A member of the RNA family "MIR1120/MIR1122 microRNA precursor family" from Hordeum vulgare, 87 nucleotides long. The base pairs follow the family's consensus structure, which was predicted with RNAalifold.

RNA sequence: CUACUCCCUCCGUCUCAUAAUGUAAGACGUUUUUUGACACUACGCUAGUGUUGAAAAACGUCUUACAUUAUGAAACGGAGGAAGUAU
Numbered sequence: 001c002u003a004c005u006c007c008c009u010c011c012g013u014c015u016c017a018u019a020a021u022g023u024a025a026g027a028c029g030u031u032u033u034u035u036g037a038c039a040c041u042a043c044g045c046u047a048g049u050g051u052u053g054a055a056a057a058a059c060g061u062c063u064u065a066c067a068u069u070a071u072g073a074a075a076c077g078g079a080g081g082a083a084g085u086a087u
Stems, first nucleotide, its partner, number of pairs: 003085003007081005013075001015073003019069023
Notes:
It scores 91 bits against the family's covariance model.